[Rfam]
RNA sequence: GGGAAUAUAAUAGUAGAAUCUCUGCUUUAUAGAACUUCCUUUGCUAUUUCUUUCAGUAUCUUAGGAGGCGUGGACAGCGGAGAUAGAGAAAGUUUUCUUUCGAAAAUGAUUUUGGCUUUAGAUUAAUCUUCUACUUCACUGCAUGAUGUUUUUAUUAUCUUUUGGUGAAUCUCUUUGGCUUAUCAGACAUUU
Numbered sequence: 001g002g003g004a005a006u007a008u009a010a011u012a013g014u015a016g017a018a019u020c021u022c023u024g025c026u027u028u029a030u031a032g033a034a035c036u037u038c039c040u041u042u043g044c045u046a047u048u049u050c051u052u053u054c055a056g057u058a059u060c061u062u063a064g065g066a067g068g069c070g071u072g073g074a075c076a077g078c079g080g081a082g083a084u085a086g087a088g089a090a091a092g093u094u095u096u097c098u099u100u101c102g103a104a105a106a107u108g109a110u111u112u113u114g115g116c117u118u119u120a121g122a123u124u125a126a127u128c129u130u131c132u133a134c135u136u137c138a139c140u141g142c143a144u145g146a147u148g149u150u151u152u153u154a155u156u157a158u159c160u161u162u163u164g165g166u167g168a169a170u171c172u173c174u175u176u177g178g179c180u181u182a183u184c185a186g187a188c189a190u191u192u
Base pairs, nucleotide, nucleotide: 020082021081022080023079024078025077034071035070036068037067039065040064041063043060045058107185108184109183110182114180115179116178117177135169136168137167138166139165140164141163143161145159146158
Rfam assigns this 192-nucleotide RNA from Kazachstania africana to the family "Small nucleolar RNA snR9". Its family is annotated with RNA processing and nucleolus in the Gene Ontology. A reference for the family is Parker et al. (1988), "Genetic analysis of small nuclear RNAs in Saccharomyces cerevisiae: viable sextuple mutant", Mol Cell Biol. The organism belongs to Kazachstania africana, within Eukaryota. Its Rfam clan is "SNORA44 clan".